Notes
This 290-nucleotide sequence from Odontophorus gujanensis belongs to the Rfam family "Retroviral 3'UTR stability element". Rfam links the family to the GO term regulation of RNA stability. The family has 8 seed sequences and 188 matches in Rfam 15.1. The literature on the family includes a 2009 paper in J Virol by Weil et al., "Structural characterization of the Rous sarcoma virus RNA stability element". The source organism's lineage runs through Eukaryota, Deuterostomia, Tetrapoda, Odontophoridae and Odontophorus.
RNA sequence: UUGCAGUACUUCAUUUGUGACUGUGGAGCUCAGGUUGGGUCAUAUUGAACCUUUGCUUAGCCCGUGGAACACCCCUAUAUCUUUGUUAUCAAAAAACGCUUGGGAGCGUUUCACUUGCUUCAUGAUUUGCGUGCUGUCAACACUCAACUCGUUCCUUUUGGGUCAGUCCAACAAGGUGGGCCAAUCCUGUCAGCCAUACCUAGAAAAUGGCCGAUGGUUGUGAUUGACCUCAAAGACUGUUUCUUUUCCAUUCCCCUAGCUGAACAAGAUAGAGAGGUGUUUGCCUUCAU
Numbered sequence: 001u002u003g004c005a006g007u008a009c010u011u012c013a014u015u016u017g018u019g020a021c022u023g024u025g026g027a028g029c030u031c032a033g034g035u036u037g038g039g040u041c042a043u044a045u046u047g048a049a050c051c052u053u054u055g056c057u058u059a060g061c062c063c064g065u066g067g068a069a070c071a072c073c074c075c076u077a078u079a080u081c082u083u084u085g086u087u088a089u090c091a092a093a094a095a096a097c098g099c100u101u102g103g104g105a106g107c108g109u110u111u112c113a114c115u116u117g118c119u120u121c122a123u124g125a126u127u128u129g130c131g132u133g134c135u136g137u138c139a140a141c142a143c144u145c146a147a148c149u150c151g152u153u154c155c156u157u158u159u160g161g162g163u164c165a166g167u168c169c170a171a172c173a174a175g176g177u178g179g180g181c182c183a184a185u186c187c188u189g190u191c192a193g194c195c196a197u198a199c200c201u202a203g204a205a206a207a208u209g210g211c212c213g214a215u216g217g218u219u220g221u222g223a224u225u226g227a228c229c230u231c232a233a234a235g236a237c238u239g240u241u242u243c244u245u246u247u248c249c250a251u252u253c254c255c256c257u258a259g260c261u262g263a264a265c266a267a268g269a270u271a272g273a274g275a276g277g278u279g280u281u282u283g284c285c286u287u288c289a290u
Base pairs, nucleotide, nucleotide: 013119017114018113019112020111050067051066055062085107086106087105089103090102091101092100143272148268149267151265152264153263154262162212164210166208174201175200176199177198178197179195180194181193183190216252217251218250220248